Overview: The record is a 126-nucleotide sequence from Candidatus Symbiopectobacterium sp. PLON1, which matches "Phenylalanine leader peptide" in Rfam. For this family Rfam cites "Nucleotide sequence of the leader region of the phenylalanine operon of Escherichia coli" (Zurawski et al., Proc Natl Acad Sci U S A, 1978). Taxonomically the source falls in Symbiopectobacterium (Bacteria, Enterobacterales, Enterobacteriaceae, ant, tsetse, mealybug, aphid, etc. endosymbionts). The family's consensus secondary structure was predicted with CMfinder. Rfam classes the family as a cis-regulatory leader.

RNA sequence: CAAGUAUGACUACUGCUAUUUUCCGUUUCUUUUUUUUACUUUAGCGCCUGAUCUCAGGAGGCUUUGCGCGUAAGAAAAGAAACGAAAAAUAGCGCUUGAAGCCUCCCGCCGGGAGGCUUUUUUAUU
Numbered sequence: 001c002a003a004g005u006a007u008g009a010c011u012a013c014u015g016c017u018a019u020u021u022u023c024c025g026u027u028u029c030u031u032u033u034u035u036u037u038a039c040u041u042u043a044g045c046g047c048c049u050g051a052u053c054u055c056a057g058g059a060g061g062c063u064u065u066g067c068g069c070g071u072a073a074g075a076a077a078a079g080a081a082a083c084g085a086a087a088a089a090u091a092g093c094g095c096u097u098g099a100a101g102c103c104u105c106c107c108g109c110c111g112g113g114a115g116g117c118u119u120u121u122u123u124a125u126u
Base pairs, nucleotide, nucleotide: 015093016092017091018090020088021087022086024084025083026082027081028080029079030078031077032076033075036073037072038071039070042056057067059065060064098120099119100118101117102116103115104114105113106112107111